Overview: Ribosomal protein L20 leader: a 121-nucleotide sequence from Aquibacillus halophilus. By type it is a cis-regulatory leader. The base pairs follow the family's consensus structure, which was predicted with CMfinder. Rfam's curators write: This family is a putative r-protein leader autoregulatory structure found in B. subtilis and other low-GC Gram-positive bacteria. It is located in the 5' untranslated regions of mRNAs encoding initiation factor 3 followed by ribosomal proteins L35 and L20 (infC-rpmI-rplT). A Rho-independent transcription terminator structure that is probably involved in regulation is included at the 3' end. The literature on the family includes a 1994 paper in Prog Nucleic Acid Res Mol Biol by Zengel and Lindahl, "Diverse mechanisms for regulating ribosomal protein synthesis in Escherichia coli".
RNA sequence: UGAGACAAGUAGAAGCACCCGCUUCUCACCUGAUUGACGCAAUGUGCAGUUGACAGGUAAUUAUUCUGAUUAAAAACAGGAGAUGUGUGGGUGCAAUGUGUACCGACACUUUUUUAAUUUG
Numbered sequence: 001u002g003a004g005a006c007a008a009g010u011a012g013a014a015g016c017a018c019c020c021g022c023u024u025c026u027c028a029c030c031u032g033a034u035u036g037a038c039g040c041a042a043u044g045u046g047c048a049g050u051u052g053a054c055a056g057g058u059a060a061u062u063a064u065u066c067u068g069a070u071u072a073a074a075a076a077c078a079g080g081a082g083a084u085g086u087g088u089g090g091g092u093g094c095a096a097u098g099u100g101u102a103c104c105g106a107c108a109c110u111u112u113u114u115u116a117a118u119u120u121g
Stems, first nucleotide, its partner, number of pairs: 011026006028058003036051003039047002086108003090104006